[Rfam]
RNA sequence: CCCAGCGGUAGUCAGCUACCUGUCGCUGCGCAGUGCCUGUGAUAGUGUUAUGCUGCUGGGAGAGCAAUGCGCUGCCGAGUAGCUCCUGGCACCGCCAGUGCUGUCCUGGCAUUCAGUGGUGGCAGGGUUUGGCAGCGCUCUGCAUGCUUGAGAGUGGAGUAACUCCUGCUCCGUGGGGUUAAUCCUAGAUGGGAUGCAGACAGU
Numbered sequence: 001c002c003c004a005g006c007g008g009u010a011g012u013c014a015g016c017u018a019c020c021u022g023u024c025g026c027u028g029c030g031c032a033g034u035g036c037c038u039g040u041g042a043u044a045g046u047g048u049u050a051u052g053c054u055g056c057u058g059g060g061a062g063a064g065c066a067a068u069g070c071g072c073u074g075c076c077g078a079g080u081a082g083c084u085c086c087u088g089g090c091a092c093c094g095c096c097a098g099u100g101c102u103g104u105c106c107u108g109g110c111a112u113u114c115a116g117u118g119g120u121g122g123c124a125g126g127g128u129u130u131g132g133c134a135g136c137g138c139u140c141u142g143c144a145u146g147c148u149u150g151a152g153a154g155u156g157g158a159g160u161a162a163c164u165c166c167u168g169c170u171c172c173g174u175g176g177g178g179u180u181a182a183u184c185c186u187a188g189a190u191g192g193g194a195u196g197c198a199g200a201c202a203g204u
Base pairs, nucleotide, nucleotide: 001060002059003058004057005056006055007054008053009052011051012050015046016045017044018043020041021039022037025036026035069138070137071136072135073134074133075132076131077130084127085126086125087124088123090121091120092119093118095116097112099111100110101109102108140199141198142197143196144195145194147192156185157184158183160181161180162179163178164177165176166175
Dot-bracket structure: (((((((((.((..((((.(((..((........))).).).))))...)))))))))))........(((((((((......(((((.((((.(.(.((((.....)))))...).)))).)))))..))))))))).((((((.(........(((.(((((((........))))))).)))......).)))))).....
A member of the RNA family "Small nucleolar RNA SNORA74" from Cepphus grylle, 204 nucleotides long. The base pairs follow the family's consensus structure, which was predicted with PFOLD. Its family is annotated with nucleolus and RNA processing in the Gene Ontology. NCBI's taxonomy places the organism under Eukaryota, Bilateria, Sarcopterygii, Coelurosauria, Cepphus. The match comes from Rfam's covariance-model search (116 bits). Clan: SNORA74 clan. From the family's description: U19 belongs to the H/ACA class of snoRNAs. snoRNAs bind a number of proteins (including dyskerin, Gar1p and Nop10p in the case of the H/ACA class) to form snoRNP complexes. This class are thought to guide the sites of modification of uridines to pseudouridines by forming direct base pairing interactions with substrate RNAs. Targets may include ribosomal and spliceosomal RNAs but the exact functions of many snoRNAs, including U19, are not confirmed. Co-precipitation of U19 snoRNA with RNase MRP RNA suggests that U19 may be involved in pre-rRNA processing. The family has 24 seed sequences and 1,348 matches in Rfam 15.1.